The family of this 102-nucleotide RNA sequence from Bacillus yapensis is "Purine riboswitch aptamer".
RNA sequence: AUAUUUAUAUACAUGAACCUUCAUAUAUCCUCGGUAAUACGGACCGAGAGUCUCUACCGGGUCACCUUAAAUGACCUGACUAUGAAGGCAGGAUUAGUCUAU
Numbered sequence: 001a002u003a004u005u006u007a008u009a010u011a012c013a014u015g016a017a018c019c020u021u022c023a024u025a026u027a028u029c030c031u032c033g034g035u036a037a038u039a040c041g042g043a044c045c046g047a048g049a050g051u052c053u054c055u056a057c058c059g060g061g062u063c064a065c066c067u068u069a070a071a072u073g074a075c076c077u078g079a080c081u082a083u084g085a086a087g088g089c090a091g092g093a094u095u096a097g098u099c100u101a102u
Stems, first nucleotide, its partner, number of pairs: 018088008030048006058078007
Rfam's curators write: Riboswitches are metabolite binding domains within certain messenger RNAs that serve as precision sensors for their corresponding targets.